[Rfam]
A member of the RNA family "Small nucleolar RNA Z40" from Hipposideros armiger, 73 nucleotides long.
For this family Rfam cites "The high diversity of snoRNAs in plants: identification and comparative study of 120 snoRNA genes from Oryza sativa" (Chen et al., Nucleic Acids Res, 2003).
Rfam 15.1 lists 615 matches to the family in 541 species.
Gene Ontology terms of the family: nucleolus and RNA processing.

RNA sequence: CAAUGUUAUGAUGAUGGGCAAAAUAUUCAACUGUUCCGAAUGGGCUGAAUGAGAAUAGCCUUUCUGAAUAUCU
Number, nucleotide and partner (000 for none) at each position: 001c000002a000003a071004u070005g069006u068007u000008a000009u000010g000011a000012u000013g000014a000015u000016g000017g000018g000019c000020a000021a000022a000023a000024u000025a000026u000027u000028c000029a000030a000031c000032u000033g000034u000035u000036c000037c000038g000039a000040a000041u000042g000043g000044g000045c000046u000047g000048a000049a000050u000051g000052a000053g000054a000055a000056u000057a000058g000059c000060c000061u000062u000063u000064c000065u000066g000067a000068a006069u005070a004071u003072c000073u000